Record summary
Shown here is a 71-nucleotide RNA from Drosophila erecta, a member of the family "mir-133 microRNA precursor family". From the family's description: mir-133 was first experimentally characterised in mouse and homologues have since been discovered in several other species. The mature sequence is excised from the 3' arm of the hairpin. The source organism's lineage runs through Eukaryota, Eumetazoa, Ecdysozoa, Allotriocarida and Sophophora. Rfam links the family to the GO terms miRNA-mediated post-transcriptional gene silencing and RISC complex. Pairs were carried over by alignment from the consensus structure, which was predicted with PFOLD. Rfam 15.1 lists 3,763 matches to the family in 801 species.
RNA sequence: GUGUGUAGCUGGUUGACAUCGGGUCAGAUCUGUUUUCCUAGCAUUUGGUCCCCUUCAACCAGCUGUAGCCA
Numbered sequence: 001g002u003g004u005g006u007a008g009c010u011g012g013u014u015g016a017c018a019u020c021g022g023g024u025c026a027g028a029u030c031u032g033u034u035u036u037c038c039u040a041g042c043a044u045u046u047g048g049u050c051c052c053c054u055u056c057a058a059c060c061a062g063c064u065g066u067a068g069c070c071a
Stems, first nucleotide, its partner, number of pairs: 003069001004067002007064010021051009